[Rfam]
The record is a 114-nucleotide sequence, which matches "drum RNA" in Rfam. Pairs were carried over by alignment from the consensus structure, which is taken from published work. It is annotated as a small RNA.

RNA sequence: GAUCUGUGAAGCAGGUGCCGUUCAGGAACGCGGUGCCCAGUGGAGAUCUUCGUGGGUUAAGAUGAUAACCAUAAACCUGAUAGUCGCAUGAGCGGCGAAAGAAAACAUCUGAGA
Number, nucleotide and partner (000 for none) at each position: 001g048002a047003u046004c045005u000006g000007u000008g000009a000010a000011g041012c040013a000014g038015g037016u035017g034018c033019c032020g031021u030022u000023c079024a078025g077026g076027a000028a000029c000030g021031c020032g019033g018034u017035g016036c000037c015038c014039a000040g012041u011042g000043g000044a000045g004046a003047u002048c001049u000050u000051c000052g000053u000054g000055g000056g000057u000058u000059a000060a000061g109062a108063u107064g000065a000066u000067a000068a000069c000070c000071a000072u000073a000074a000075a000076c026077c025078u024079g023080a000081u000082a000083g096084u095085c094086g093087c000088a000089u000090g000091a000092g000093c086094g085095g084096c083097g000098a000099a000100a000101g000102a000103a000104a000105a000106c000107a063108u062109c061110u000111g000112a000113g000114a000